[Rfam]
RNA sequence: UUGUUAUCUUAUGCAGUGUCAUAAACAACAA
Dot-bracket structure: (((((.(.((((((...).)))))).)))))
Source information:
The record is a 31-nucleotide RNA sequence from Erpetoichthys calabaricus, which matches "Iron response element II" in Rfam. A reference for the family is Sanchez et al. (2006), "Iron regulation and the cell cycle: identification of an iron-responsive element in the 3'-untranslated region of human cell division cycle 14A mRNA by a refined microarray-based screening strategy", J Biol Chem. The source organism's lineage runs through Eukaryota, Deuterostomia, Vertebrata, Gnathostomata and Erpetoichthys. IRE, TFRC, SLC40A1, SDHB, SLC11A2, CDC42BPA, ACO2, ALAS2_H.SAPIENS, CDC14A, EPAS1, ALAS2, qoxD, Hao1, NDUFS1, transferrin, Aconitate.